[Rfam]
RNA: Lysine riboswitch aptamer
Organism: Fructilactobacillus florum
RNA sequence: CUUAAAUAAAGAGGUGCGUUGUUCAUUAGUAAAUUGGGGGAGGCUGCUCAGUCGUAGAAACCAAUUAAAAGGGGCCAUCGCCGAAAUCAAGCUAUUAGCACUGGCUUGAUUGGGGUUUGAUUGAACAAGUCAAACACUGUCGCAUGUAAAUGCGGGGCGCUUUGUGGGAU
Numbered sequence: 001c002u003u004a005a006a007u008a009a010a011g012a013g014g015u016g017c018g019u020u021g022u023u024c025a026u027u028a029g030u031a032a033a034u035u036g037g038g039g040g041a042g043g044c045u046g047c048u049c050a051g052u053c054g055u056a057g058a059a060a061c062c063a064a065u066u067a068a069a070a071g072g073g074g075c076c077a078u079c080g081c082c083g084a085a086a087u088c089a090a091g092c093u094a095u096u097a098g099c100a101c102u103g104g105c106u107u108g109a110u111u112g113g114g115g116u117u118u119g120a121u122u123g124a125a126c127a128a129g130u131c132a133a134a135c136a137c138u139g140u141c142g143c144a145u146g147u148a149a150a151u152g153c154g155g156g157g158c159g160c161u162u163u164g165u166g167g168g169a170u
Base pairs, nucleotide, nucleotide: 006165007164008163009162010161011160016081017080018079020077021076023074024073032066033065034064035063036062037061085111086110087109088108089107090106091105092104093103094102096100112138113137115135116134117133118132119131120130121129122128140155141154142153143152144151145150